[Rfam]
RNA sequence: AAAAAGGGCGUAUGGUGGGGUUCCCGCAAGGGAUUCCCAAUACCACGUGGGCAUUUGCCUGUGCGGAAUCGUCAUCCAGAGAUUUCGGGCGCAUAAUAUUUGUAAACCGGCGGCUCAGGCUUCGCUUUAAGCUGGAGCCGCCC
Numbered sequence: 001a002a003a004a005a006g007g008g009c010g011u012a013u014g015g016u017g018g019g020g021u022u023c024c025c026g027c028a029a030g031g032g033a034u035u036c037c038c039a040a041u042a043c044c045a046c047g048u049g050g051g052c053a054u055u056u057g058c059c060u061g062u063g064c065g066g067a068a069u070c071g072u073c074a075u076c077c078a079g080a081g082a083u084u085u086c087g088g089g090c091g092c093a094u095a096a097u098a099u100u101u102g103u104a105a106a107c108c109g110g111c112g113g114c115u116c117a118g119g120c121u122u123c124g125c126u127u128u129a130a131g132c133u134g135g136a137g138c139c140g141c142c143c
Stems, first nucleotide, its partner, number of pairs: 008092004013045005046063007064087007109142008117133001119132004
Dot-bracket structure: .......((((.(((((.......................)))))(((((((....)))))))(((((((..........))))))).))))................(((((((((.((((......))))).)))))))).
The record is a 143-nucleotide sequence from Jimgerdemannia flammicorona, which matches "U11 spliceosomal RNA" in Rfam. The family's consensus secondary structure is taken from published work. The literature on the family includes a 1988 paper in Proc Natl Acad Sci U S A by Montzka and Steitz, "Additional low-abundance human small nuclear ribonucleoproteins: U11, U12, etc". By type it is a spliceosomal small nuclear RNA.